[Rfam]
RNA sequence: GAAUGAGGAGUGAGAACCUCCUCCGCCGAAUGACCAAGGGUUCCUGGGCCAGGCUAAUCCGCCCAGGGUAAGUCGGGACCUAAGGCGAGGCCGACAGGCGUAGUCGAUGGACAACGGGUUGAUAUUCCCGUACCCGCAGAAGAGCGCCCAUGUCGAACCUAGCGAUGCUAAGCGCCAGAAGCCGAGAGGACUUUCGAGUCCAACACGGUGGAUCGCGCGACCCUAACUAGUAGUAGACAAGCGAUGGGGUGACGCAGGAAGGUAGUCGUACCGGUAAGUGGAUACACCGGGGUAAGCGUGUAGGGCGUCGUGUAGGUAAAUCCGCACGGCACCAGCCUGAGACGUGAUGCAUAGCCGAUUGCGGCGAAUUCGAUGAUCCUAUGCUGCCGAGAAAAGCCUCUAGCGAGCUCUGAGCGGCCCGUACCCCAAACCGACACAGGUGGUCAGGUAGAGAAUACCAAGGCGAU
Numbered sequence: 001g002a003a004u005g006a007g008g009a010g011u012g013a014g015a016a017c018c019u020c021c022u023c024c025g026c027c028g029a030a031u032g033a034c035c036a037a038g039g040g041u042u043c044c045u046g047g048g049c050c051a052g053g054c055u056a057a058u059c060c061g062c063c064c065a066g067g068g069u070a071a072g073u074c075g076g077g078a079c080c081u082a083a084g085g086c087g088a089g090g091c092c093g094a095c096a097g098g099c100g101u102a103g104u105c106g107a108u109g110g111a112c113a114a115c116g117g118g119u120u121g122a123u124a125u126u127c128c129c130g131u132a133c134c135c136g137c138a139g140a141a142g143a144g145c146g147c148c149c150a151u152g153u154c155g156a157a158c159c160u161a162g163c164g165a166u167g168c169u170a171a172g173c174g175c176c177a178g179a180a181g182c183c184g185a186g187a188g189g190a191c192u193u194u195c196g197a198g199u200c201c202a203a204c205a206c207g208g209u210g211g212a213u214c215g216c217g218c219g220a221c222c223c224u225a226a227c228u229a230g231u232a233g234u235a236g237a238c239a240a241g242c243g244a245u246g247g248g249g250u251g252a253c254g255c256a257g258g259a260a261g262g263u264a265g266u267c268g269u270a271c272c273g274g275u276a277a278g279u280g281g282a283u284a285c286a287c288c289g290g291g292g293u294a295a296g297c298g299u300g301u302a303g304g305g306c307g308u309c310g311u312g313u314a315g316g317u318a319a320a321u322c323c324g325c326a327c328g329g330c331a332c333c334a335g336c337c338u339g340a341g342a343c344g345u346g347a348u349g350c351a352u353a354g355c356c357g358a359u360u361g362c363g364g365c366g367a368a369u370u371c372g373a374u375g376a377u378c379c380u381a382u383g384c385u386g387c388c389g390a391g392a393a394a395a396g397c398c399u400c401u402a403g404c405g406a407g408c409u410c411u412g413a414g415c416g417g418c419c420c421g422u423a424c425c426c427c428a429a430a431c432c433g434a435c436a437c438a439g440g441u442g443g444u445c446a447g448g449u450a451g452a453g454a455a456u457a458c459c460a461a462g463g464c465g466a467u
Stems, first nucleotide, its partner, number of pairs: 005023006024465004032445004038425002043067006052060002074421004079110002084105003088101001090099003114131005134417004141411004241404002246400005254387004260380003265374004271290005292350002296345004303338003307330007315323002352367001354365004431440002447459004
Annotation
Rfam assigns this 467-nucleotide part of an RNA from Jatrophihabitans endophyticus to the family "Bacterial large subunit ribosomal RNA". It scores 2814 bits against the family's covariance model. The base pairs follow the family's consensus structure, which is taken from published work.